Overview: The record is a 200-nucleotide sequence from Panicum virgatum, which matches "MIR1435 microRNA precursor family" in Rfam. NCBI's taxonomy places the organism under Eukaryota, Tracheophyta, Magnoliopsida, Liliopsida, Panicum sect. Hiantes. The match comes from Rfam's covariance-model search (113 bits).
RNA sequence: AACAUUGGUCCUAAGUCAAACUCAUCUAACUUUGACCAAGUUUGUAGAAAAAUAUAUUAACAUCUACAACAUCAAAUGAAUGUAGUAUGUAAAGAUAUUUCAUGAUCUAUCUAGUGAAACUAGUUUGAUGUUGUAGAUAUUUAUGUAUUUUUCUGUAAACUUGGUCAAACCUAAAGAAGUUUGACUUAGGGCAAAGCUAG
Numbered sequence: 001a002a003c004a005u006u007g008g009u010c011c012u013a014a015g016u017c018a019a020a021c022u023c024a025u026c027u028a029a030c031u032u033u034g035a036c037c038a039a040g041u042u043u044g045u046a047g048a049a050a051a052a053u054a055u056a057u058u059a060a061c062a063u064c065u066a067c068a069a070c071a072u073c074a075a076a077u078g079a080a081u082g083u084a085g086u087a088u089g090u091a092a093a094g095a096u097a098u099u100u101c102a103u104g105a106u107c108u109a110u111c112u113a114g115u116g117a118a119a120c121u122a123g124u125u126u127g128a129u130g131u132u133g134u135a136g137a138u139a140u141u142u143a144u145g146u147a148u149u150u151u152u153c154u155g156u157a158a159a160c161u162u163g164g165u166c167a168a169a170c171c172u173a174a175a176g177a178a179g180u181u182u183g184a185c186u187u188a189g190g191g192c193a194a195a196g197c198u199a200g
Stems, first nucleotide, its partner, number of pairs: 005195002008192002011189012025175001031169005045155008055145003059141002062138007072128006